A member of the RNA family "mir-275 microRNA precursor family" from Eumeta japonica, 84 nucleotides long. A reference for the family is Winter et al. (2007), "Anopheles gambiae miRNAs as actors of defence reaction against Plasmodium invasion", Nucleic Acids Res. The organism belongs to Eumeta, within Eukaryota. Rfam links the family to the GO terms RISC complex and miRNA-mediated post-transcriptional gene silencing. It scores 67 bits against the family's covariance model.
[Rfam]
RNA sequence: CCGACGGCGGCGCCGCGCGCUACUCGGGCGCCGGGACUGUCUCCCCGAGUCAGGUACCUGAAGUAGCGCGCGGAGCCGUCGUCG
Dot-bracket structure: ........(((..(.(((((((.......(((..((((.........)))).)))........))))))).)..))).......